[Rfam]
RNA sequence: UUGUCUCUGAGAUGCGCGAGUAUCCUGGAUAAGCUGACCAACAUAAUGAUCGAGAUGUCUUUCACCCGUUGCCAUGGUGAGCCAGCCUACCUUGCAGUGGGACGCCUGAAAUGGCCGGUGAAGACCAAGCUUUUGGUCCGGUCCUAUUUUCCGGAGCAAUCGGCAUCUCGGAGACGCA
Numbered sequence: 001u002u003g004u005c006u007c008u009g010a011g012a013u014g015c016g017c018g019a020g021u022a023u024c025c026u027g028g029a030u031a032a033g034c035u036g037a038c039c040a041a042c043a044u045a046a047u048g049a050u051c052g053a054g055a056u057g058u059c060u061u062u063c064a065c066c067c068g069u070u071g072c073c074a075u076g077g078u079g080a081g082c083c084a085g086c087c088u089a090c091c092u093u094g095c096a097g098u099g100g101g102a103c104g105c106c107u108g109a110a111a112u113g114g115c116c117g118g119u120g121a122a123g124a125c126c127a128a129g130c131u132u133u134u135g136g137u138c139c140g141g142u143c144c145u146a147u148u149u150u151c152c153g154g155a156g157c158a159a160u161c162g163g164c165a166u167c168u169c170g171g172a173g174a175c176g177c178a
Stems, first nucleotide, its partner, number of pairs: 002176014017162003031148002036143004056127002060123006067117001071115005081105002086101005

Notes
Shown here is a 178-nucleotide RNA from Syntrophotalea acetylenica, a member of the family "6S / SsrS RNA". It scores 56 bits against the family's covariance model. The family's RNA type in Rfam is non-coding RNA gene. NCBI's taxonomy places the organism under Bacteria, Thermodesulfobacteriota, Desulfuromonadia, Syntrophotaleaceae, Syntrophotalea.